The family of this 165-nucleotide sequence from Paenibacillus graminis is "Group II catalytic intron D1-D4-3". It scores 101 bits against the family's covariance model.
RNA sequence: UCCGCCGCGAGGCGGAAUCUGAAGGAAGCCGGAGGCAAACCCUCGGUCUGACGAAUAGAAAUCACAUACAAGGCAUGCUGGGACGGACGAGCUUGCAAUCCAAAGCAAAGUCCAAUACUGCCCGAAUCUCAGGAAGUGAAGUGGAAUUAGGGAACCUAAAUCGGC
Numbered sequence: 001u002c003c004g005c006c007g008c009g010a011g012g013c014g015g016a017a018u019c020u021g022a023a024g025g026a027a028g029c030c031g032g033a034g035g036c037a038a039a040c041c042c043u044c045g046g047u048c049u050g051a052c053g054a055a056u057a058g059a060a061a062u063c064a065c066a067u068a069c070a071a072g073g074c075a076u077g078c079u080g081g082g083a084c085g086g087a088c089g090a091g092c093u094u095g096c097a098a099u100c101c102a103a104a105g106c107a108a109a110g111u112c113c114a115a116u117a118c119u120g121c122c123c124g125a126a127u128c129u130c131a132g133g134a135a136g137u138g139a140a141g142u143g144g145a146a147u148u149a150g151g152g153a154a155c156c157u158a159a160a161u162c163g164g165c
Stems, first nucleotide, its partner, number of pairs: 001016006028165005040152004045147001047145001062144004067140001073137002078132006085113004091106004